[Rfam]
RNA: SAM (S-adenosyl methionine) riboswitch aptamer
Organism: Epidermidibacterium keratini
RNA sequence: GGUCAUGAGCGUCAGCGACAAGCCCUGGCUAGCUGACCGGCAACCCUCCAGACUGGCGGUGGGGUGCUCCAGGUGACGACCCGGCUCGCGUAAUCGCGAGCAAGCGCAGUCG
Dot-bracket structure: ((((....(.((((((....((......)).)))))))(((..(((.((........))..))).))).........))))..(((((((....)))))))...........